[Rfam]
A member of the RNA family "IMES-1 RNA motif", 189 nucleotides long. The family's RNA type in Rfam is non-coding RNA gene.
RNA sequence: AUCGGACUGACUUACAAUCAACUGCAGACGGGAGUAGGAGAGAAAGAGGAGGAAGAGACGAAGGGUGAAAGCGAUACUAAGAGUCGACGAUAAAAAAGAGCUUAGUAACCCACCAAGGAGGAAAGAGAAAGCCUCUGAGGAGCUAAAGAGAUUCUCACUUUAGACCCCUUCUAAUCUCGAUUGAAAAGA
Numbered sequence: 001a002u003c004g005g006a007c008u009g010a011c012u013u014a015c016a017a018u019c020a021a022c023u024g025c026a027g028a029c030g031g032g033a034g035u036a037g038g039a040g041a042g043a044a045a046g047a048g049g050a051g052g053a054a055g056a057g058a059c060g061a062a063g064g065g066u067g068a069a070a071g072c073g074a075u076a077c078u079a080a081g082a083g084u085c086g087a088c089g090a091u092a093a094a095a096a097a098g099a100g101c102u103u104a105g106u107a108a109c110c111c112a113c114c115a116a117g118g119a120g121g122a123a124a125g126a127g128a129a130a131g132c133c134u135c136u137g138a139g140g141a142g143c144u145a146a147a148g149a150g151a152u153u154c155u156c157a158c159u160u161u162a163g164a165c166c167c168c169u170u171c172u173a174a175u176c177u178c179g180a181u182u183g184a185a186a187a188g189a
Stems, first nucleotide, its partner, number of pairs: 002047002011038005060171005073109001075107007117136005125156005143163006
Notes
On this family, see Weinberg et al., Nature 2009: "Exceptional structured noncoding RNAs revealed by bacterial metagenome analysis".